[Rfam]
RNA sequence: GGAGAGGUGGCAGAGUGGUCGAUUGCGUCCGACUUGAAAUCGGAUGAUGCGAAAGCAUCCGGGAGUUCGAAUCUCCCCCUCUCCG
Numbered sequence: 001g002g003a004g005a006g007g008u009g010g011c012a013g014a015g016u017g018g019u020c021g022a023u024u025g026c027g028u029c030c031g032a033c034u035u036g037a038a039a040u041c042g043g044a045u046g047a048u049g050c051g052a053a054a055g056c057a058u059c060c061g062g063g064a065g066u067u068c069g070a071a072u073c074u075c076c077c078c079c080u081c082u083c084c085g
Stems, first nucleotide, its partner, number of pairs: 001084007010026004028044005061077005
Dot-bracket structure: (((((((..((((.........)))).(((((.......)))))................(((((.......)))))))))))).
This 85-nucleotide RNA from Tolypothrix bouteillei belongs to the Rfam family "tRNA". Taxonomically the source falls in Tolypothrix bouteillei (Bacteria, Bacillati, Tolypothrichaceae, Tolypothrix). Rfam classes the family as a transfer RNA. The match comes from Rfam's covariance-model search (60 bits). Rfam links the family to the GO term triplet codon-amino acid adaptor activity.